[Rfam]
RNA sequence: UUACUGGAAGCUAUAGCUAUUGAACUGUUCUGUCACUCUCUGACAAAGAACAAUUUGUUCAUUGACAGAGAGUGACAAAACAGUGCAAUAGCUAAAGCGAAAGUUUU
Numbered sequence: 001u002u003a004c005u006g007g008a009a010g011c012u013a014u015a016g017c018u019a020u021u022g023a024a025c026u027g028u029u030c031u032g033u034c035a036c037u038c039u040c041u042g043a044c045a046a047a048g049a050a051c052a053a054u055u056u057g058u059u060c061a062u063u064g065a066c067a068g069a070g071a072g073u074g075a076c077a078a079a080a081c082a083g084u085g086c087a088a089u090a091g092c093u094a095a096a097g098c099g100a101a102a103g104u105u106u107u
Base pairs, nucleotide, nucleotide: 003104004103005102011097012096014094015093016092017091018090019089020088021087022086024084025083026082027081028080029069030068031067032066033065034064035063049059050058051057052056